[Rfam]
RNA: Small nucleolar RNA snoR109
Organism: Handroanthus impetiginosus
RNA sequence: CGGCUGUAGCCAUAUUAAGUGAAGAAGUUAUCUGGCCGGUUGUUGUUUUUGGGGUCUCUGGAUCUCAAUCGUCGACAAAUCUGCUUACCGAACUUCUCACAUUU
Numbered sequence: 001c002g003g004c005u006g007u008a009g010c011c012a013u014a015u016u017a018a019g020u021g022a023a024g025a026a027g028u029u030a031u032c033u034g035g036c037c038g039g040u041u042g043u044u045g046u047u048u049u050u051g052g053g054g055u056c057u058c059u060g061g062a063u064c065u066c067a068a069u070c071g072u073c074g075a076c077a078a079a080u081c082u083g084c085u086u087a088c089c090g091a092a093c094u095u096c097u098c099a100c101a102u103u104u
Base pairs, nucleotide, nucleotide: 023097024096025095026094027093028092029091034085035084036083038081039080040079041078042076043075044074045073